Record summary: Shown here is a 70-nucleotide RNA sequence from Lymphocryptovirus macacinegamma4, a member of the family "mir-BART1 microRNA precursor family".
RNA sequence: GUGGGUUUUAGUGGAAGUGACGUGCUGUGAUUAGGUACCCAUAGCACCGCUAUCCACUAUGUCUCACCAG
Numbered sequence: 001g002u003g004g005g006u007u008u009u010a011g012u013g014g015a016a017g018u019g020a021c022g023u024g025c026u027g028u029g030a031u032u033a034g035g036u037a038c039c040c041a042u043a044g045c046a047c048c049g050c051u052a053u054c055c056a057c058u059a060u061g062u063c064u065c066a067c068c069a070g
Stems, first nucleotide, its partner, number of pairs: 001067005007061001009059007016051004022047008

The organism belongs to Lymphocryptovirus macacinegamma4, within Viruses. Rfam's curators put it in the seed alignment. A reference for the family is Pfeffer et al. (2004), "Identification of Virus-Encoded MicroRNAs", Science. From the family's description: This family represents the mir-BART1 microRNA precursor found in Human herpesvirus 4 (Epstein-Barr virus) and Cercopithicine herpesvirus 15. mir-BART1 is found in all stages of infection but expression is significantly elevated in the lytic stage.